[Rfam]
RNA sequence: AAUAAGAGAAGAGUCGAGCCAAACUAAAAGAGGAAACUAAUAUAAUCUCUCUGCAGAAUGCUGCAAAGCAACAUCGUCUAGAUCUGAAACAUAAGAUCAAGCAGAAGUUGGUUUGCUGCACUCUGCUGGGAGAUUAGAUUAGUUUCCUCUUCUAGUUUGACAGCCUCUUCUCUUAUU
Numbered sequence: 001a002a003u004a005a006g007a008g009a010a011g012a013g014u015c016g017a018g019c020c021a022a023a024c025u026a027a028a029a030g031a032g033g034a035a036a037c038u039a040a041u042a043u044a045a046u047c048u049c050u051c052u053g054c055a056g057a058a059u060g061c062u063g064c065a066a067a068g069c070a071a072c073a074u075c076g077u078c079u080a081g082a083u084c085u086g087a088a089a090c091a092u093a094a095g096a097u098c099a100a101g102c103a104g105a106a107g108u109u110g111g112u113u114u115g116c117u118g119c120a121c122u123c124u125g126c127u128g129g130g131a132g133a134u135u136a137g138a139u140u141a142g143u144u145u146c147c148u149c150u151u152c153u154a155g156u157u158u159g160a161c162a163g164c165c166u167c168u169u170c171u172c173u174u175a176u177u
Stems, first nucleotide, its partner, number of pairs: 001177013015163001018161001020159007028151014043136009053126005059120003063116005069110004074105002078101002081098005087092001
A member of the RNA family "MIR6457 microRNA precursor family" from Populus trichocarpa, 177 nucleotides long. The source organism's lineage runs through Eukaryota, Tracheophyta, Mesangiospermae, Pentapetalae and Populus.